[Rfam]
This 60-nucleotide RNA sequence from Diceros bicornis belongs to the Rfam family "Selenocysteine insertion sequence 1". About the family: The incorporation of selenocysteine into a protein sequence is directed by an in-frame UGA codon (usually a stop codon) within the coding region of the mRNA. Selenoprotein mRNAs contain a conserved secondary structure in the 3' UTR that is required for the distinction of UGA stop from UGA selenocysteine. Rfam classes the family as a cis-regulatory element.
RNA sequence: CCCAGCUGGAUGACGAGAAGGGCUGAAAUGUUGCCAGGUCCUUUUCUGAUGGCGGCUGGG
Numbered sequence: 001c002c003c004a005g006c007u008g009g010a011u012g013a014c015g016a017g018a019a020g021g022g023c024u025g026a027a028a029u030g031u032u033g034c035c036a037g038g039u040c041c042u043u044u045u046c047u048g049a050u051g052g053c054g055g056c057u058g059g060g
Stems, first nucleotide, its partner, number of pairs: 001060005015046010029036002
Lineage of the source: Eukaryota > Deuterostomia > Mammalia > Boreoeutheria > Diceros bicornis.